[Rfam]
A member of the RNA family "c-di-AMP riboswitch aptamer (ydaO/yuaA leader)" from Heliobacterium mobile, 136 nucleotides long.
Rfam 15.1 lists 7,607 matches to the family in 2,262 species.
It scores 75 bits against the family's covariance model.
Gene Ontology terms of the family: cyclic-di-AMP binding and regulation of gene expression.
RNA sequence: AAAUAUUCUAAGCCGAGUUUCGACGUUGUCGAAAGCGGGGGAACCGUUUCUUGGGGCUAAUCUUUCUGACGAAGAGAGAGGGAUGAUCUCACCGUCCUGCCCGUCAGCUAACCUCGUAGGCUGUUGGGGAGUGUUA
Dot-bracket structure: ..........((((...((((((.....))))))((((((....((.....))(((.....((((.........))))..((((.........))))..))).........)))))).))))..............